Annotation: The record is a 391-nucleotide RNA from Roseivivax jejudonensis, which matches "Bacterial RNase P class A" in Rfam. It is annotated as a ribozyme. NCBI's taxonomy places the organism under Bacteria, Pseudomonadati, Pseudomonadota, Rhodobacterales, Roseivivax.
RNA sequence: GCGGAGAGCCGGAUGGCCGCGGGCAGGCCCCGCCUGUCCGAGGAAAGUCCGGACUCCCCGAAGCGACGGUGCCGGGUAACGCCCGGGCAGGGCAACCUGACGGACAGCGCCACAGAAAACAGACCGCCCGGUCCUUCGGGACCGGGUCAGGGUGAAACGGUGGGGUAAGAGCCCACCGGGGGGUCGGCAACGGCGCCCGCAUGGCAAGCCCCACCGGGAGCAAUGCCAAAUAGGGAUCCCGCGCGGGGGCGACCCCGCAGGGCGGCUUCGGCCCGAGGGAUCCGGGUUGGCAGCUCGAGCCGCCGGGCGACCGGCGGCCCAGAGGAAUGGUCAUCUCCGCCCCCUUCAUCGGGGGUGCAGACAGAAUCCGGCUUAUAGGCUCUCCGCGCUU
Numbered sequence: 001g002c003g004g005a006g007a008g009c010c011g012g013a014u015g016g017c018c019g020c021g022g023g024c025a026g027g028c029c030c031c032g033c034c035u036g037u038c039c040g041a042g043g044a045a046a047g048u049c050c051g052g053a054c055u056c057c058c059c060g061a062a063g064c065g066a067c068g069g070u071g072c073c074g075g076g077u078a079a080c081g082c083c084c085g086g087g088c089a090g091g092g093c094a095a096c097c098u099g100a101c102g103g104a105c106a107g108c109g110c111c112a113c114a115g116a117a118a119a120c121a122g123a124c125c126g127c128c129c130g131g132u133c134c135u136u137c138g139g140g141a142c143c144g145g146g147u148c149a150g151g152g153u154g155a156a157a158c159g160g161u162g163g164g165g166u167a168a169g170a171g172c173c174c175a176c177c178g179g180g181g182g183g184u185c186g187g188c189a190a191c192g193g194c195g196c197c198c199g200c201a202u203g204g205c206a207a208g209c210c211c212c213a214c215c216g217g218g219a220g221c222a223a224u225g226c227c228a229a230a231u232a233g234g235g236a237u238c239c240c241g242c243g244c245g246g247g248g249g250c251g252a253c254c255c256c257g258c259a260g261g262g263c264g265g266c267u268u269c270g271g272c273c274c275g276a277g278g279g280a281u282c283c284g285g286g287u288u289g290g291c292a293g294c295u296c297g298a299g300c301c302g303c304c305g306g307g308c309g310a311c312c313g314g315c316g317g318c319c320c321a322g323a324g325g326a327a328u329g330g331u332c333a334u335c336u337c338c339g340c341c342c343c344c345u346u347c348a349u350c351g352g353g354g355g356u357g358c359a360g361a362c363a364g365a366a367u368c369c370g371g372c373u374u375a376u377a378g379g380c381u382c383u384c385c386g387c388g389c390u391u
Base pairs, nucleotide, nucleotide: 001387002386003385004384005383006382007381008380009379010378011376012335013334014333015332016331017330018329020040021039022038023037024036025035026034027033028032045374046373047372049371050370051369052368053367054220055219056218057217063268065266067216068215069214070213071212072086073085074084075083076082087101088099089098090097091096102211103210107209108208109205110204111203124151125150126147127146128145129144130143131142132141133140134139159177160176161175162174163173164172178200179198180197181196183194184193185192186191224292225291226290227289234283235282236281237280238279239278260274261273262272263271299318300317301316302315303314304313305312306311